Rfam assigns this 74-nucleotide sequence to the family "Makes More Granules Regulator RNA (mmgR)". Clan: suhB sRNA clan. The base pairs follow the family's consensus structure.
RNA sequence: AGGGGGUGCCUUUCAGGCAUCCUCUCCUAAAACUUUCAGGCCGGCCCAAUGGGUCGGCCAUUUUUUUGCAUGAU
Numbered sequence: 001a002g003g004g005g006g007u008g009c010c011u012u013u014c015a016g017g018c019a020u021c022c023u024c025u026c027c028u029a030a031a032a033c034u035u036u037c038a039g040g041c042c043g044g045c046c047c048a049a050u051g052g053g054u055c056g057g058c059c060a061u062u063u064u065u066u067u068g069c070a071u072g073a074u
Stems, first nucleotide, its partner, number of pairs: 008018004039059009
The match comes from Rfam's covariance-model search (49 bits). A reference for the family is Sobrero and Valverde (2011), "Evidences of autoregulation of hfq expression in Sinorhizobium meliloti strain 2011", Arch Microbiol. Rfam 15.1 lists 1,791 matches to the family in 918 species.